[Rfam]
Annotation:
Shown here is a 140-nucleotide sequence from Micromonospora polyrhachis, a member of the family "c-di-AMP riboswitch aptamer (ydaO/yuaA leader)". Lineage of the source: Bacteria > Actinomycetota > Micromonosporales > Micromonosporaceae > Micromonospora.
RNA sequence: GGCUCGAUACCGCCGAAUCGUUCGCAAGAUCGAACCGGGGACCCACAUGAUCCAUCGGGGUGAAUCCGCGAUCCGCGGUAGGGCGCACAUCUUCCCGCCCGAACCCGUCAGCUAACUCGGUAGGCGGUCAGGAAGAAGGA
Numbered sequence: 001g002g003c004u005c006g007a008u009a010c011c012g013c014c015g016a017a018u019c020g021u022u023c024g025c026a027a028g029a030u031c032g033a034a035c036c037g038g039g040g041a042c043c044c045a046c047a048u049g050a051u052c053c054a055u056c057g058g059g060g061u062g063a064a065u066c067c068g069c070g071a072u073c074c075g076c077g078g079u080a081g082g083g084c085g086c087a088c089a090u091c092u093u094c095c096c097g098c099c100c101g102a103a104c105c106c107g108u109c110a111g112c113u114a115a116c117u118c119g120g121u122a123g124g125c126g127g128u129c130a131g132g133a134a135g136a137a138g139g140a
Base pairs, nucleotide, nucleotide: 011126012125013124014123018033019032020031034121035120036119037118038117039116044057058106059105060104066078067077068076069075081100082099083098084097